[Rfam]
RNA sequence: GAAUUUUGAUUAUCGCCAAGCAUCUUGGUCAAAGGGAAG
Numbered sequence: 001g002a003a004u005u006u007u008g009a010u011u012a013u014c015g016c017c018a019a020g021c022a023u024c025u026u027g028g029u030c031a032a033a034g035g036g037a038a039g
Stems, first nucleotide, its partner, number of pairs: 015029006

Shown here is a 39-nucleotide RNA sequence from Hermetia illucens, a member of the family "nuoG RNA".